Shown here is a 148-nucleotide sequence from Camphora micrantha, a member of the family "small nucleolar RNA snoR137".
Rfam links the family to the GO terms nucleolus and RNA processing.
RNA sequence: GUUGCUUCUUUCUGACUGAGCUAUCCCUUUUCUUCUAUGGGUUGUUCAUGUUUAGAAGCAUAGAGUAAAAUUUACUACUUCCAGUGUUAAACAUCUUGAUGUUGAUACAUAUGAAGUUGCAUGGUGUUACCUGUCUCCUGGAACAUUA
Numbered sequence: 001g002u003u004g005c006u007u008c009u010u011u012c013u014g015a016c017u018g019a020g021c022u023a024u025c026c027c028u029u030u031u032c033u034u035c036u037a038u039g040g041g042u043u044g045u046u047c048a049u050g051u052u053u054a055g056a057a058g059c060a061u062a063g064a065g066u067a068a069a070a071u072u073u074a075c076u077a078c079u080u081c082c083a084g085u086g087u088u089a090a091a092c093a094u095c096u097u098g099a100u101g102u103u104g105a106u107a108c109a110u111a112u113g114a115a116g117u118u119g120c121a122u123g124g125u126g127u128u129a130c131c132u133g134u135c136u137c138c139u140g141g142a143a144c145a146u147u148a
Base pairs, nucleotide, nucleotide: 003060004059005058006057007056008055017048018047019046020045021044025041026040080142081141082140083139084138086136093128095126097124099122100121101120